Shown here is a 111-nucleotide RNA from Shouchella clausii, a member of the family "SAM riboswitch aptamer (S box leader)". Pairs were carried over by alignment from the consensus structure, which is taken from published work.
RNA sequence: AACUUAUCAAGAGUGGCGGAGGGACCUGACCCAAUGAAGCCCGGCAACCAGUUUAUUUGUAAACCACGGUGCUACAUUCAGCAGAGCAGCUUUUGUUCUGAAAGAUAAGUG
Numbered sequence: 001a002a003c004u005u006a007u008c009a010a011g012a013g014u015g016g017c018g019g020a021g022g023g024a025c026c027u028g029a030c031c032c033a034a035u036g037a038a039g040c041c042c043g044g045c046a047a048c049c050a051g052u053u054u055a056u057u058u059g060u061a062a063a064c065c066a067c068g069g070u071g072c073u074a075c076a077u078u079c080a081g082c083a084g085a086g087c088a089g090c091u092u093u094u095g096u097u098c099u100g101a102a103a104g105a106u107a108a109g110u111g
Base pairs, nucleotide, nucleotide: 002110003109004108005107006106007105008104013042015041016040017039021032022031023030026081027080028079029078043073044072045071046070048069049068051064052063053062077103082100083099084098085097086096087095